The family of this 500-nucleotide RNA sequence from Streptomyces sp. PBH53 is "Saccharopolyspora sRNA 350". For this family Rfam cites "Prediction and characterization of small non-coding RNAs related to secondary metabolites in Saccharopolyspora erythraea" (Liu et al., PLoS One, 2013). A search with the family's covariance model found it, with a score of 189 bits. Lineage of the source: Bacteria > Actinomycetota > Actinomycetes > Kitasatosporales > Streptomyces. Its family is annotated with regulation of secondary metabolite biosynthetic process in the Gene Ontology.
RNA sequence: CGGACGGUGUACUCCCAGAUCGCCUCGGGGUCGAUCAGCGCCUGGUCGCCGAAGUAGGCGCCGUCGGCGAGGACGCCGAGCACGGCGUCGUCGCCGUAGGGGCCCGUGCCGACCUUCUCCACCCGGCCGUGGGCGAGGAGGUAGACCUCGUCCGUCCGGUUGCCGAAGUCGGCGAUCACCUCGCCGGGCGCGAAGUCGCGCUGGCGGCAGCGGCGGGCCAGCUCCGUCAGCACCUCCUCGUCCUCGUACGACCGCAGGGCCGGCAGCUCGGCCAGUUCGUUCGGGAUGACCUCCACCUGGUCCCCGGUCUUGACGAACGUGAUGCGGCCGUCGCCGACGGCGUACGUCAGCCGCCUGUUCACCCGGUAGGUGCCGCCCUGGACGUCCACCCAGGGAAGCGUGCGCAGCAGCCAGCGGGAGCUGAUCUCCUGCAUCUGCGGAACGGACUUGGUGGUGGUGGCCAGGUUCCGCGCUGCCGCCGUCCCGAGGGACUGCUGCGG
Numbered sequence: 001c002g003g004a005c006g007g008u009g010u011a012c013u014c015c016c017a018g019a020u021c022g023c024c025u026c027g028g029g030g031u032c033g034a035u036c037a038g039c040g041c042c043u044g045g046u047c048g049c050c051g052a053a054g055u056a057g058g059c060g061c062c063g064u065c066g067g068c069g070a071g072g073a074c075g076c077c078g079a080g081c082a083c084g085g086c087g088u089c090g091u092c093g094c095c096g097u098a099g100g101g102g103c104c105c106g107u108g109c110c111g112a113c114c115u116u117c118u119c120c121a122c123c124c125g126g127c128c129g130u131g132g133g134c135g136a137g138g139a140g141g142u143a144g145a146c147c148u149c150g151u152c153c154g155u156c157c158g159g160u161u162g163c164c165g166a167a168g169u170c171g172g173c174g175a176u177c178a179c180c181u182c183g184c185c186g187g188g189c190g191c192g193a194a195g196u197c198g199c200g201c202u203g204g205c206g207g208c209a210g211c212g213g214c215g216g217g218c219c220a221g222c223u224c225c226g227u228c229a230g231c232a233c234c235u236c237c238u239c240g241u242c243c244u245c246g247u248a249c250g251a252c253c254g255c256a257g258g259g260c261c262g263g264c265a266g267c268u269c270g271g272c273c274a275g276u277u278c279g280u281u282c283g284g285g286a287u288g289a290c291c292u293c294c295a296c297c298u299g300g301u302c303c304c305c306g307g308u309c310u311u312g313a314c315g316a317a318c319g320u321g322a323u324g325c326g327g328c329c330g331u332c333g334c335c336g337a338c339g340g341c342g343u344a345c346g347u348c349a350g351c352c353g354c355c356u357g358u359u360c361a362c363c364c365g366g367u368a369g370g371u372g373c374c375g376c377c378c379u380g381g382a383c384g385u386c387c388a389c390c391c392a393g394g395g396a397a398g399c400g401u402g403c404g405c406a407g408c409a410g411c412c413a414g415c416g417g418g419a420g421c422u423g424a425u426c427u428c429c430u431g432c433a434u435c436u437g438c439g440g441a442a443c444g445g446a447c448u449u450g451g452u453g454g455u456g457g458u459g460g461c462c463a464g465g466u467u468c469c470g471c472g473c474u475g476c477c478g479c480c481g482u483c484c485c486g487a488g489g490g491a492c493u494g495c496u497g498c499g500g
Stems, first nucleotide, its partner, number of pairs: 006390004011385002015381002018328001020327001022325002025322003029318001031316002035313004040308003045305001048302001050300001052298001054233002060227002063224001065111004075103001077102001082097005118221001122217002127212001130209001133205002136202002138199001140197001143196001149192002154189007161178002235295001240290003244286002249283003253279002256277002260271003329342004353377001355375001357373001360372004391431005397425001399423002403418001405416001407415001437476004443470004447465006484499001487496002